L17-Actino-Proteobacteria ribosomal protein leader: a 57-nucleotide sequence from Myxococcus fulvus. The base pairs follow the family's consensus structure, which is taken from published work. Taxonomically the source falls in Myxococcus fulvus (Bacteria, Pseudomonadati, Cystobacterineae, Myxococcus). A reference for the family is Eckert and Weinberg (2020), "Discovery of 20 novel ribosomal leader candidates in bacteria and archaea", BMC Microbiol.

RNA sequence: GGUGGGCCCCGUGUCGGGUCCACCCUUCCCACCCGGUACCUGACACGGCCGGAGUGG
Numbered sequence: 001g002g003u004g005g006g007c008c009c010c011g012u013g014u015c016g017g018g019u020c021c022a023c024c025c026u027u028c029c030c031a032c033c034c035g036g037u038a039c040c041u042g043a044c045a046c047g048g049c050c051g052g053a054g055u056g057g
Stems, first nucleotide, its partner, number of pairs: 001024009029057003033052005